[Rfam]
RNA: U11 spliceosomal RNA
Organism: Cricetulus griseus
RNA sequence: AAAACGGGCUUCUGUCAGGAGUGGCACACGUAGGGCAACUCGAUUGCUCUGUGUGCAGAAUUGACAUUAAGAGAUUUCAAAAGUCUGGUCUGAUUCCUUGGUGGCUGGUGGUUGUUGGUCCCCAAAACCAAC
Numbered sequence: 001a002a003a004a005c006g007g008g009c010u011u012c013u014g015u016c017a018g019g020a021g022u023g024g025c026a027c028a029c030g031u032a033g034g035g036c037a038a039c040u041c042g043a044u045u046g047c048u049c050u051g052u053g054u055g056c057a058g059a060a061u062u063g064a065c066a067u068u069a070a071g072a073g074a075u076u077u078c079a080a081a082a083g084u085c086u087g088g089u090c091u092g093a094u095u096c097c098u099u100g101g102u103g104g105c106u107g108g109u110g111g112u113u114g115u116u117g118g119u120c121c122c123c124a125a126a127a128c129c130a131a132c
Stems, first nucleotide, its partner, number of pairs: 008084004013026005027055012058077005099130004106124003110121002113118001